[Rfam]
RNA sequence: GGUGCCGAGGGGCGCUGCGACGGGCCCGGCCCGCCACGCUCGGCACCGUCUCCUGCAGCAAGGGCGCCUUCUCACC
Numbered sequence: 001g002g003u004g005c006c007g008a009g010g011g012g013c014g015c016u017g018c019g020a021c022g023g024g025c026c027c028g029g030c031c032c033g034c035c036a037c038g039c040u041c042g043g044c045a046c047c048g049u050c051u052c053c054u055g056c057a058g059c060a061a062g063g064g065c066g067c068c069u070u071c072u073c074a075c076c
Stems, first nucleotide, its partner, number of pairs: 002046007021033005
Notes
Shown here is a 76-nucleotide RNA sequence from Amycolatopsis methanolica, a member of the family "SAH (S-adenosyl-L-homocysteine) riboswitch aptamer". Lineage of the source: Bacteria > Bacillati > Actinomycetes > Pseudonocardiaceae > Amycolatopsis methanolica. The match comes from Rfam's covariance-model search (51 bits).